[Rfam]
RNA: MIR168 microRNA precursor family
RNA sequence: CUUGCAGCAGUCUCUAAUUUGCUUGGUGCAGCUCGGGAGUUCCUUUGCCUUGGCAAAUGAUGUCUGGCAAAAGUUAUGCUCCCGAGUUGUGCCAAAUGAAUCAGAGCCUGCAGUGAAU
Numbered sequence: 001c002u003u004g005c006a007g008c009a010g011u012c013u014c015u016a017a018u019u020u021g022c023u024u025g026g027u028g029c030a031g032c033u034c035g036g037g038a039g040u041u042c043c044u045u046u047g048c049c050u051u052g053g054c055a056a057a058u059g060a061u062g063u064c065u066g067g068c069a070a071a072a073g074u075u076a077u078g079c080u081c082c083c084g085a086g087u088u089g090u091g092c093c094a095a096a097u098g099a100a101u102c103a104g105a106g107c108c109u110g111c112a113g114u115g116a117a118u
Stems, first nucleotide, its partner, number of pairs: 013105002017101004023095010034084005040078001